[Rfam]
Nucleotides: 167
Base pairs, nucleotide, nucleotide: 006162008160009159010158011157016079017078018077019076020075021074022073024071032064033063034062035061036060037059038058039057083109084108085107086106087105089103090102091101092100094098110136111135112134113133116130117129118128119127120126138152139151140150141149142148
Number, partner (000 for none) and nucleotide at each position: 001000u002000a003000c004000c005000a006162u007000g008160g009159u010158a011157g012000a013000g014000g015000c016079g017078c018077u019076a020075a021074u022073g023000u024071u025000a026000a027000a028000a029000g030000u031000a032064u033063u034062u035061u036060u037059a038058g039057g040000g041000a042000g043000u044000c045000g046000g047000c048000a049000g050000a051000u052000u053000a054000a055000g056000a057039u058038c059037u060036a061035a062034a063033a064032a065000g066000a067000a068000a069000g070000g071024a072000c073022c074021a075020u076019u077018a078017g079016c080000c081000g082000a083109a084108g085107g086106g087105g088000u089103u090102a091101a092100g093000c094098u095000g096000c097000a098094a099000a100092c101091u102090u103089a104000u105087u106086c107085u108084c109083u110136g111135g112134a113133c114000u115000u116130g117129c118128a119127u120126a121000u122000a123000a124000u125000a126120u127119a128118u129117g130116u131000c132000u133113g134112u135111c136110u137000g138152u139151c140150a141149c142148u143000a144000a145000c146000u147000c148142a149141g150140u151139g152138g153000a154000g155000u156000g157011c158010u159009a160008c161000a162006a163000g164000g165000u166000g167000c